[Rfam]
Rfam assigns this 133-nucleotide sequence from Cyprinus carpio to the family "Small nucleolar RNA SNORA13". Its Rfam clan is "SNORA13 clan". The family's consensus secondary structure was predicted with CMfinder. A search with the family's covariance model found it, with a score of 61 bits. The source organism's lineage runs through Eukaryota, Opisthokonta, Teleostomi, Clupeocephala and Cyprinus carpio.
RNA sequence: UGCCUUAAAGUGUUGCCUGUUCAUCACUUUUCAGAUGAAUGUGGUGUCAGCUAGGGCAAAUAUUAACACAUGAGGUGGCUGUUAAGAAGGGUUUACAUCUGUGCCUUUCAAUAGUUUCAUCUUAUGGACAUCA
Number, nucleotide and partner (000 for none) at each position: 001u000002g057003c056004c055005u054006u053007a052008a000009a000010g000011u049012g048013u000014u046015g045016c044017c043018u041019g040020u039021u038022c037023a036024u035025c034026a000027c000028u000029u000030u000031u000032c000033a000034g025035a024036u023037g022038a021039a020040u019041g018042u000043g017044g016045u015046g014047u000048c012049a011050g000051c000052u007053a006054g005055g004056g003057c002058a000059a000060a000061u000062a000063u000064u000065a000066a000067c000068a000069c126070a125071u124072g123073a122074g121075g120076u119077g118078g117079c000080u000081g000082u000083u000084a115085a000086g000087a112088a000089g109090g108091g000092u000093u000094u103095a000096c000097a000098u000099c000100u000101g000102u000103g094104c000105c000106u000107u000108u090109c089110a000111a000112u087113a000114g000115u084116u000117u078118c077119a076120u075121c074122u073123u072124a071125u070126g069127g000128a000129c000130a000131u000132c000133a000